[Rfam]
RNA sequence: AAAAAGGGUUUCUGCAAAUGCACGCAUCAAGUAUUAAUCGUUGACUAAUAUGAGAUGUGCGGAAUCGCCAUCAAGAGAUUCCGGAAACGUAAUUUUUGGAAACAAGAGGUGCUGGAAUCGCUUAAUUUCAGUACCUCUU
Numbered sequence: 001a002a003a004a005a006g007g008g009u010u011u012c013u014g015c016a017a018a019u020g021c022a023c024g025c026a027u028c029a030a031g032u033a034u035u036a037a038u039c040g041u042u043g044a045c046u047a048a049u050a051u052g053a054g055a056u057g058u059g060c061g062g063a064a065u066c067g068c069c070a071u072c073a074a075g076a077g078a079u080u081c082c083g084g085a086a087a088c089g090u091a092a093u094u095u096u097u098g099g100a101a102a103c104a105a106g107a108g109g110u111g112c113u114g115g116a117a118u119c120g121c122u123u124a125a126u127u128u129c130a131g132u133a134c135c136u137c138u139u
Stems, first nucleotide, its partner, number of pairs: 008088005013022003023059006031051006060083007106137009116128002
Dot-bracket structure: .......((((((((....)))((((((..((((((.........))))))..))))))(((((((..........)))))))))))).................(((((((((.((.........)))))))))))..
The record is a 139-nucleotide sequence from Soboliphyme baturini, which matches "U11 spliceosomal RNA" in Rfam. Its Rfam clan is "U1 clan". Rfam 15.1 lists 2,595 matches to the family in 1,202 species. A search with the family's covariance model found it, with a score of 77 bits.